[Rfam]
RNA sequence: GGGGGCGAUCGGUUUCGACGGUGACCUGUUCGCUGCAGGGAAGCGUGCCGAGAACGUCGGGUCCACUCGUGGAUGACCCCGACAAAAGAAUAAGUGCUAAAUCUAACCGCACUGAGUUCGCUCUCGCUGCCUGAGCUUCGCGCCAGGAUUAACCAGUGAGCAGCCGCUCCGUUCACUCCUCCUCGUCUUUGGGAGGAUGCUGAGCGUCGUUAAGAAGACUUGCUGAUACAGCUGAGCCUCAGGGCUGUGUCGGGACUUUAACUGCGGAUAUGCUCGCCAUCAGUUGUCUGCGACAUCGAUGGGGGCAGAAAAACCGCCGCACGGCCAGCAGACUACGCACGUAGAAGACUGUGGGCUCGGUCAUCGGACCGGGGUUCAAUUCCCCGCGCCUCCACUA
Numbered sequence: 001g002g003g004g005g006c007g008a009u010c011g012g013u014u015u016c017g018a019c020g021g022u023g024a025c026c027u028g029u030u031c032g033c034u035g036c037a038g039g040g041a042a043g044c045g046u047g048c049c050g051a052g053a054a055c056g057u058c059g060g061g062u063c064c065a066c067u068c069g070u071g072g073a074u075g076a077c078c079c080c081g082a083c084a085a086a087a088g089a090a091u092a093a094g095u096g097c098u099a100a101a102u103c104u105a106a107c108c109g110c111a112c113u114g115a116g117u118u119c120g121c122u123c124u125c126g127c128u129g130c131c132u133g134a135g136c137u138u139c140g141c142g143c144c145a146g147g148a149u150u151a152a153c154c155a156g157u158g159a160g161c162a163g164c165c166g167c168u169c170c171g172u173u174c175a176c177u178c179c180u181c182c183u184c185g186u187c188u189u190u191g192g193g194a195g196g197a198u199g200c201u202g203a204g205c206g207u208c209g210u211u212a213a214g215a216a217g218a219c220u221u222g223c224u225g226a227u228a229c230a231g232c233u234g235a236g237c238c239u240c241a242g243g244g245c246u247g248u249g250u251c252g253g254g255a256c257u258u259u260a261a262c263u264g265c266g267g268a269u270a271u272g273c274u275c276g277c278c279a280u281c282a283g284u285u286g287u288c289u290g291c292g293a294c295a296u297c298g299a300u301g302g303g304g305g306c307a308g309a310a311a312a313a314c315c316g317c318c319g320c321a322c323g324g325c326c327a328g329c330a331g332a333c334u335a336c337g338c339a340c341g342u343a344g345a346a347g348a349c350u351g352u353g354g355g356c357u358c359g360g361u362c363a364u365c366g367g368a369c370c371g372g373g374g375u376u377c378a379a380u381u382c383c384c385c386g387c388g389c390c391u392c393c394a395c396u397a
Stems, first nucleotide, its partner, number of pairs: 001393007019366008028357001033354006044341005049069004056083006122148003126144001128142003170206006177197007185219006223253009235269001237267002240264001271307005277302004283296002286333004370386005